Small nucleolar RNA SNORD103/SNORD85: an 88-nucleotide RNA from Oreocharis arfaki.

RNA sequence: CCUGGCAGUGAUGCCACGCUUGCCCUCGCUGAGAGCUCUGUUCAGUAAUGAGCCUCUGUGCCCGUGAGCUCGGGGCAGCUGAGCCAGG
Numbered sequence: 001c002c003u004g005g006c007a008g009u010g011a012u013g014c015c016a017c018g019c020u021u022g023c024c025c026u027c028g029c030u031g032a033g034a035g036c037u038c039u040g041u042u043c044a045g046u047a048a049u050g051a052g053c054c055u056c057u058g059u060g061c062c063c064g065u066g067a068g069c070u071c072g073g074g075g076c077a078g079c080u081g082a083g084c085c086a087g088g
Base pairs, nucleotide, nucleotide: 001088002087003086004085005084006083
For this family Rfam cites "RNomics: an experimental approach that identifies 201 candidates for novel, small, non-messenger RNAs in mouse" (Huttenhofer et al., EMBO J, 2001). The pairing is the family consensus, mapped onto this sequence. Rfam classes the family as a C/D-box small nucleolar RNA.